RNA sequence: AUACUUACCUGGUAGGAGAGAUACCAUGAUCACGAGGGUGGUUUUCCCAGGGUGAGGCUUAUCCAUUGUACUCCGGAUGUGCUGACCCCUGCGAUUUCCCCAAAUGUGGGAAACUCGACUGCAUAAUUUGAACACAGUGGGGGACUGUGUUCGUGCUUUCCUCUG
Numbered sequence: 001a002u003a004c005u006u007a008c009c010u011g012g013u014a015g016g017a018g019a020g021a022u023a024c025c026a027u028g029a030u031c032a033c034g035a036g037g038g039u040g041g042u043u044u045u046c047c048c049a050g051g052g053u054g055a056g057g058c059u060u061a062u063c064c065a066u067u068g069u070a071c072u073c074c075g076g077a078u079g080u081g082c083u084g085a086c087c088c089c090u091g092c093g094a095u096u097u098c099c100c101c102a103a104a105u106g107u108g109g110g111a112a113a114c115u116c117g118a119c120u121g122c123a124u125a126a127u128u129u130g131a132a133c134a135c136a137g138u139g140g141g142g143g144a145c146u147g148u149g150u151u152c153g154u155g156c157u158u159u160c161c162u163c164u165g
Stems, first nucleotide, its partner, number of pairs: 012122004016048001018046004023042005049090004054086001056083003060079005092117003095113003099109002139163004144159001147156003
U1 spliceosomal RNA: a 165-nucleotide sequence from Camelus ferus. U1 is a small nuclear RNA (snRNA) component of the spliceosome (involved in pre-mRNA splicing). Clan: U1 clan. By type it is a spliceosomal small nuclear RNA. NCBI's taxonomy places the organism under Eukaryota, Euteleostomi, Amniota, Laurasiatheria, Camelus.